[Rfam]
Nucleotides: 091
Stems, first nucleotide, its partner, number of pairs: 012037002017032006040085004045081003048076003055070004
Number, partner (000 for none) and nucleotide at each position: 001000g002000a003000a004000g005000c006000g007000a008000a009000a010000a011000g012037g013036c014000a015000a016000a017032c018031u019030u020029g021028c022027u023000g024000a025000a026000a027022a028021g029020c030019g031018a032017g033000g034000a035000c036013g037012c038000a039000a040085a041084a042083c043082c044000u045081c046080g047079g048076g049075c050074c051000u052000a053000a054000g055070g056069a057068a058067a059000c060000g061000a062000u063000g064000g065000a066000g067058u068057u069056u070055c071000u072000a073000a074050g075049g076048c077000g078000g079047c080046c081045g082043g083042g084041u085040u086000a087000c088000c089000g090000a091000a